[Rfam]
RNA: Small nucleolar RNA ncR1
RNA sequence: GGCAUGGACGAUCUGAAUCUCUGAGAUUGUAAACGUCGUUGUAUGAAAAUCUACAUUUAAGAUGUUGUUCGUUAGAGGAGAUCUCAUCUUUGCGUAAAAGAGAGAAGCA
Numbered sequence: 001g002g003c004a005u006g007g008a009c010g011a012u013c014u015g016a017a018u019c020u021c022u023g024a025g026a027u028u029g030u031a032a033a034c035g036u037c038g039u040u041g042u043a044u045g046a047a048a049a050u051c052u053a054c055a056u057u058u059a060a061g062a063u064g065u066u067g068u069u070c071g072u073u074a075g076a077g078g079a080g081a082u083c084u085c086a087u088c089u090u091u092g093c094g095u096a097a098a099a100g101a102g103a104g105a106a107g108c109a
Stems, first nucleotide, its partner, number of pairs: 001037003005033001008030007050105003056099003062095004071088001075085004